[Rfam]
This 78-nucleotide RNA belongs to the Rfam family "int-alpA RNA".
RNA sequence: UCCCCGGCUAGGCAUGGCGUCAUGAACCAUGCCGAAAAGGCGGAUAGCCUUGUCGCCCUGCCGGGGAUCUAUCAAGGG
Number, nucleotide and partner (000 for none) at each position: 001u067002c066003c065004c064005c063006g062007g061008c060009u000010a000011g033012g032013c031014a030015u029016g028017g027018c000019g000020u000021c000022a000023u000024g000025a000026a000027c017028c016029a015030u014031g013032c012033c011034g000035a000036a000037a000038a000039g057040g056041c055042g054043g053044a000045u000046a000047g000048c077049c076050u075051u074052g073053u043054c042055g041056c040057c039058c000059u000060g008061c007062c006063g005064g004065g003066g002067a001068u000069c000070u000071a000072u000073c052074a051075a050076g049077g048078g000